[Rfam]
RNA sequence: CACUCCGAUAUUGUCCUGUCACAGCAGUAAUGUCACGUAUCUGAAUCGUACUGCUGUCGCGGGACAUUUUCGGAGCU
Numbered sequence: 001c002a003c004u005c006c007g008a009u010a011u012u013g014u015c016c017u018g019u020c021a022c023a024g025c026a027g028u029a030a031u032g033u034c035a036c037g038u039a040u041c042u043g044a045a046u047c048g049u050a051c052u053g054c055u056g057u058c059g060c061g062g063g064a065c066a067u068u069u070u071c072g073g074a075g076c077u
Stems, first nucleotide, its partner, number of pairs: 003075004012066007022056008